The record is a 167-nucleotide RNA sequence from Pseudonocardiaceae bacterium YIM PH 21723, which matches "c-di-AMP riboswitch aptamer (ydaO/yuaA leader)" in Rfam.
RNA sequence: CAGAAACGGACGUCCGGACAGGGACGGGGAAACCACUCAAGACGGCCACUUGUGGCCUUGGGGUGAAGCCGAGCUACGACAGUCGGCCGGGCAGCGAAGCCUCGAAGUACUGGGGCAGAGUGAUCCGAACCCGACAGCUAACCUCGCAGGCGCUGGAUCGCGAGAGG
Numbered sequence: 001c002a003g004a005a006a007c008g009g010a011c012g013u014c015c016g017g018a019c020a021g022g023g024a025c026g027g028g029g030a031a032a033c034c035a036c037u038c039a040a041g042a043c044g045g046c047c048a049c050u051u052g053u054g055g056c057c058u059u060g061g062g063g064u065g066a067a068g069c070c071g072a073g074c075u076a077c078g079a080c081a082g083u084c085g086g087c088c089g090g091g092c093a094g095c096g097a098a099g100c101c102u103c104g105a106a107g108u109a110c111u112g113g114g115g116c117a118g119a120g121u122g123a124u125c126c127g128a129a130c131c132c133g134a135c136a137g138c139u140a141a142c143c144u145c146g147c148a149g150g151c152g153c154u155g156g157a158u159c160g161c162g163a164g165a166g167g
Stems, first nucleotide, its partner, number of pairs: 001150001007022001025146005034060002061132003069086004089126003

A search with the family's covariance model found it, with a score of 44 bits.
This family represents a conserved RNA structure found upstream of the ydaO and yuaA genes in Bacillus subtilis and related genes in other bacteria. The ydaO/yuaA element is thought to act as a genetic 'off' switch for the ydaO and yuaA genes in its native state. It is believed that the element may be triggered during osmotic shock leading to activation of ydaO, a predicted amino acid transporter gene, and members of the yuaA-yubG operon which code for KtrA and KtrB K+ transporters.